[Rfam]
Nucleotides: 047
Stems, first nucleotide, its partner, number of pairs: 002044009012034006019027002
Number, partner (000 for none) and nucleotide at each position: 001000u002044u003043u004042g005041a006040g007039a008038a009037c010036c011000a012034u013033u014032u015031g016030a017029a018000u019027c020026a021000a022000g023000u024000a025000g026020u027019g028000u029017u030016u031015c032014a033013a034012a035000c036010g037009g038008u039007u040006c041005u042004c043003a044002a045000a046000a047000a